[Rfam]
RNA: Plastid-rpl16 group II-D1 intron
Organism: Downingia elegans
RNA sequence: AAGAGCUUCGAGGCAAUAAAGACUGAGAAUAUUGUCUCAUGCACAA
Number, nucleotide and partner (000 for none) at each position: 001a000002a000003g000004a000005g000006c000007u041008u000009c000010g038011a037012g036013g035014c034015a033016a032017u031018a000019a000020a000021g000022a000023c000024u000025g000026a000027g000028a000029a000030u000031a017032u016033u015034g014035u013036c012037u011038c010039a000040u000041g007042c000043a000044c000045a000046a000